RNA sequence: UGCCUACGAUGACAAACCCAAAGGCUUGUUUCUCAAAACAUUCGCAGUGGCCGCAUGAGAGCUUUCGCCUCGCCAGGCUUGAGAGCUUAUGCUGCAUGAAUUUUUCCUUCCUUGGAUGUCUGAGGCU
Number, nucleotide and partner (000 for none) at each position: 001u000002g126003c125004c124005u000006a000007c000008g000009a000010u000011g000012a000013c000014a000015a000016a000017c000018c000019c000020a000021a000022a000023g000024g000025c000026u000027u000028g000029u000030u000031u000032c000033u000034c000035a000036a000037a000038a000039c000040a000041u000042u000043c000044g000045c000046a000047g000048u000049g000050g000051c000052c000053g000054c000055a000056u000057g000058a000059g000060a000061g086062c085063u084064u083065u082066c081067g000068c000069c000070u000071c000072g000073c000074c000075a000076g000077g000078c000079u000080u000081g066082a065083g064084a063085g062086c061087u000088u000089a000090u000091g000092c000093u000094g000095c000096a000097u000098g000099a000100a000101u000102u000103u000104u000105u000106c000107c000108u000109u000110c000111c000112u000113u000114g000115g000116a000117u000118g000119u000120c000121u000122g000123a000124g004125g003126c002127u000